A member of the RNA family "PyrR binding site" from Bacillus methanolicus, 133 nucleotides long. It scores 62 bits against the family's covariance model. Lineage of the source: Bacteria > Bacillota > Caryophanales > Bacillaceae > Bacillus methanolicus.

[Rfam]
Nucleotides: 133
Stems, first nucleotide, its partner, number of pairs: 004036006014029005040077005046071001048069005097127001099125011
Number, partner (000 for none) and nucleotide at each position: 001000a002000a003000g004036u005035c006034c007033u008032u009031u010000a011000a012000c013000a014029c015028a016027g017026u018025c019000c020000c021000g022000u023000g024000a025018g026017g027016c028015u029014g030000a031009g032008a033007a034006g035005g036004a037000a038000a039000c040077g041076g042075a043074u044073u045000c046071g047000a048069g049068c050067a051066u052065a053000u054000a055000a056000a057000g058000g059000g060000u061000g062000u063000a064000c065052u066051a067050u068049g069048c070000c071046c072000a073044g074043a075042u076041c077040u078000a079000u080000a081000u082000g083000c084000c085000u086000u087000c088000a089000a090000u091000g092000a093000a094000c095000a096000c097127g098000u099125a100124c101123c102122c103121u104120c105119u106118c107117g108116c109115c110000g111000c112000a113000g114000c115109g116108g117107c118106g119105a120104g121103a122102g123101g124100g125099u126000u127097u128000u129000u130000u131000a132000a133000u